The family of this 67-nucleotide sequence from Pipistrellus kuhlii is "mir-9256 microRNA precursor family". Rfam 15.1 lists 31,772 matches to the family in 5 species. Rfam links the family to the GO terms RISC complex and miRNA-mediated post-transcriptional gene silencing. A search with the family's covariance model found it, with a score of 81 bits. The source organism's lineage runs through Eukaryota, Eumetazoa, Eutheria, Yangochiroptera and Pipistrellus. Pairs were carried over by alignment from the consensus structure, which was predicted with RNAalifold.
[Rfam]
RNA sequence: AUAUACACUGAGUGGUCAGAUUAUUAUGUGUGCAGAGACCAUAAUAAUCUGGCCACUCAGUGUAUAC
Numbered sequence: 001a002u003a004u005a006c007a008c009u010g011a012g013u014g015g016u017c018a019g020a021u022u023a024u025u026a027u028g029u030g031u032g033c034a035g036a037g038a039c040c041a042u043a044a045u046a047a048u049c050u051g052g053c054c055a056c057u058c059a060g061u062g063u064a065u066a067c
Stems, first nucleotide, its partner, number of pairs: 004064014019049010